RNA sequence: GGCAGUUCUUAGGUCACACACCCUGGAGUCAGGCUCCCUUCUCUCUGGUUCUGGGUGUAUCACCCGAGAACCACA
Number, nucleotide and partner (000 for none) at each position: 001g000002g074003c000004a000005g071006u070007u069008c068009u067010u066011a000012g064013g063014u062015c000016a060017c000018a000019c057020a056021c055022c054023c053024u000025g052026g051027a050028g049029u048030c047031a046032g045033g044034c000035u000036c000037c000038c000039u000040u000041c000042u000043c000044u033045c032046u031047g030048g029049u028050u027051c026052u025053g023054g022055g021056u020057g019058u000059a000060u016061c000062a014063c013064c012065c000066g010067a009068g008069a007070a006071c005072c000073a000074c002075a000
Rfam assigns this 75-nucleotide RNA from Pipistrellus kuhlii to the family "mir-9223 microRNA precursor family". The family has 9 seed sequences and 14,641 matches in Rfam 15.1. Gene Ontology terms of the family: RISC complex and miRNA-mediated post-transcriptional gene silencing.